[Rfam]
RNA sequence: ACAAAGGCUCUUUUAAGAGCCACCCACCUUCUCGUUCAAAGAGUU
Numbered sequence: 001a002c003a004a005a006g007g008c009u010c011u012u013u014u015a016a017g018a019g020c021c022a023c024c025c026a027c028c029u030u031c032u033c034g035u036u037c038a039a040a041g042a043g044u045u
Stems, first nucleotide, its partner, number of pairs: 006021006

This 45-nucleotide sequence from Sinocyclocheilus grahami belongs to the Rfam family "Histone 3' UTR stem-loop".
Lineage of the source: Eukaryota > Deuterostomia > Teleostei > Osteoglossocephalai > Sinocyclocheilus.
The family's consensus secondary structure is taken from published work.
Rfam links the family to the GO term mRNA 3'-end processing by stem-loop binding and cleavage.
A search with the family's covariance model found it, with a score of 37 bits.
From the family's description: The mRNAs of metazoan histone genes lack a poly-A tail. 3' end processing occurs at a site between a highly conserved stem-loop (modelled by this family) and a purine rich region around 20 nts downstream (the histone downstream element, or HDE). The stem-loop is bound by a 31 kDa stem-loop binding protein (SLBP - also termed the histone hairpin binding protein, or HBP). Together with U7 snRNA binding of the HDE, SLBP binding nucleate s the formation of the processing complex. The histone 3' UTR stem-loop is also involved in nucleocytoplasmic transport of the mRNA, and in stability regulation and translation efficiency in the cytoplasm.